Overview: A member of the RNA family "RAGATH-21 RNA", 87 nucleotides long. Rfam's curators put it in the seed alignment. The base pairs follow the family's consensus structure, which is taken from published work.
RNA sequence: AGCACAUGUCCUUAAAAGAAACAGGUUCUAGCGCAUAGCGUGAACAGCCUGGAGGUUGAAAAGCGGAUGCAAUUUCCGGCAUGUGCA
Numbered sequence: 001a002g003c004a005c006a007u008g009u010c011c012u013u014a015a016a017a018g019a020a021a022c023a024g025g026u027u028c029u030a031g032c033g034c035a036u037a038g039c040g041u042g043a044a045c046a047g048c049c050u051g052g053a054g055g056u057u058g059a060a061a062a063g064c065g066g067a068u069g070c071a072a073u074u075u076c077c078g079g080c081a082u083g084u085g086c087a
Base pairs, nucleotide, nucleotide: 002086003085004084005083006082007081008080009079010078022051023050024049025048026047027046055064056063057062065077066076067075